[Rfam]
RNA sequence: UGGCGCCCAACGUGGGGCCAGAGAACGGGGGAUCCAGUGAAGGACGCUGCUCAGGGGCCCUAAGAUUAAGAUUGAGGAACAAAGAGCAUACUCGACAUAGAAGAGGCUUGCGAUUGACGUGGACCUGCCGUCUUUUUGCACCUCGGUAAGUUGAGCAGCGAUUAUGGGACAGGGCAUUAGUCAGCACGAACUGUUUGUGCAAGGUCUCAAGAAGACAUUACAGGCACGAGGGGUAAGGUUACAGUCAAACAAUUGCUGAAAUUUUUUGAUUUUAUUAAACAUCUCUGUCCCU
Numbered sequence: 001u002g003g004c005g006c007c008c009a010a011c012g013u014g015g016g017g018c019c020a021g022a023g024a025a026c027g028g029g030g031g032a033u034c035c036a037g038u039g040a041a042g043g044a045c046g047c048u049g050c051u052c053a054g055g056g057g058c059c060c061u062a063a064g065a066u067u068a069a070g071a072u073u074g075a076g077g078a079a080c081a082a083a084g085a086g087c088a089u090a091c092u093c094g095a096c097a098u099a100g101a102a103g104a105g106g107c108u109u110g111c112g113a114u115u116g117a118c119g120u121g122g123a124c125c126u127g128c129c130g131u132c133u134u135u136u137u138g139c140a141c142c143u144c145g146g147u148a149a150g151u152u153g154a155g156c157a158g159c160g161a162u163u164a165u166g167g168g169a170c171a172g173g174g175c176a177u178u179a180g181u182c183a184g185c186a187c188g189a190a191c192u193g194u195u196u197g198u199g200c201a202a203g204g205u206c207u208c209a210a211g212a213a214g215a216c217a218u219u220a221c222a223g224g225c226a227c228g229a230g231g232g233g234u235a236a237g238g239u240u241a242c243a244g245u246c247a248a249a250c251a252a253u254u255g256c257u258g259a260a261a262u263u264u265u266u267u268g269a270u271u272u273u274a275u276u277a278a279a280c281a282u283c284u285c286u287g288u289c290c291c292u
Stems, first nucleotide, its partner, number of pairs: 006031003012026002035074004105143002111138001112136002116132004151172003156168001159166002177220001179218001180216003227268008237254004277292001281288002